[Rfam]
RNA sequence: CCUGAUGUACAUGAACGACACACAUAUGCCGUCACGUCUGACGGGGUGCUCCGAGGCUUGCAAACGCAUAGUCGCCGGGGUUGUCAGGCGGGGUGUAUGGAGGUCCCAAC
Numbered sequence: 001c002c003u004g005a006u007g008u009a010c011a012u013g014a015a016c017g018a019c020a021c022a023c024a025u026a027u028g029c030c031g032u033c034a035c036g037u038c039u040g041a042c043g044g045g046g047u048g049c050u051c052c053g054a055g056g057c058u059u060g061c062a063a064a065c066g067c068a069u070a071g072u073c074g075c076c077g078g079g080g081u082u083g084u085c086a087g088g089c090g091g092g093g094u095g096u097a098u099g100g101a102g103g104u105c106c107c108a109a110c
Stems, first nucleotide, its partner, number of pairs: 023099008035090009048081005
t44 RNA: a 110-nucleotide sequence from Acidihalobacter ferrooxydans. This family consists of a number of bacterial RNA genes of between 135 and 170 bases in length. The t44 gene has been identified in several species of enteric bacteria but homologs have also been identified in Pseudomonas and Coxiella species. The t44 gene is found between the map and rpsB genes in all species in the full alignment apart from Shigella flexneri. The function of this RNA is unknown. The family's RNA type in Rfam is small RNA.